This 111-nucleotide RNA sequence from Hydrogenophaga sp. RAC07 belongs to the Rfam family "TPP riboswitch aptamer (THI element)". The family's consensus secondary structure is taken from published work.
RNA sequence: CACAUCCGCUAGGGGUGUUGUCCCGGGGUUUUUCACCCCGGGUGCGACUGAGAAAGUCCCUUUGAACCUGAUUGAGGUAAUCCUCGCGCAGGGAAGCAGGCCGAUACCGUC
Numbered sequence: 001c002a003c004a005u006c007c008g009c010u011a012g013g014g015g016u017g018u019u020g021u022c023c024c025g026g027g028g029u030u031u032u033u034c035a036c037c038c039c040g041g042g043u044g045c046g047a048c049u050g051a052g053a054a055a056g057u058c059c060c061u062u063u064g065a066a067c068c069u070g071a072u073u074g075a076g077g078u079a080a081u082c083c084u085c086g087c088g089c090a091g092g093g094a095a096g097c098a099g100g101c102c103g104a105u106a107c108c109g110u111c
Stems, first nucleotide, its partner, number of pairs: 006099001008097003011061004016055001017048005067092004073086004